[Rfam]
RNA sequence: UCGAAGCUCCAUCUACAAAUGGAUAAAACUUCGUUUUUCGUCUAGGGUUUACGAGUUAUUGAAAGUAAAGGGGCAGUGCUGAUUUCUUGUUCUGUCAAGAAAUUGGUUAUUGCUCCUUU
Numbered sequence: 001u002c003g004a005a006g007c008u009c010c011a012u013c014u015a016c017a018a019a020u021g022g023a024u025a026a027a028a029c030u031u032c033g034u035u036u037u038u039c040g041u042c043u044a045g046g047g048u049u050u051a052c053g054a055g056u057u058a059u060u061g062a063a064a065g066u067a068a069a070g071g072g073g074c075a076g077u078g079c080u081g082a083u084u085u086c087u088u089g090u091u092c093u094g095u096c097a098a099g100a101a102a103u104u105g106g107u108u109a110u111u112g113c114u115c116c117u118u119u
Base pairs, nucleotide, nucleotide: 008023009022010021011020012019067119068118069117070116071115072114073113074112075111076110077109078108080105081104082103084101085100086099087098088097

The family of this 119-nucleotide RNA from Chenopodium quinoa is "Plastid-psbA-1 3UTR RNA".
Rfam's curators put it in the seed alignment.
The family's RNA type in Rfam is cis-regulatory element.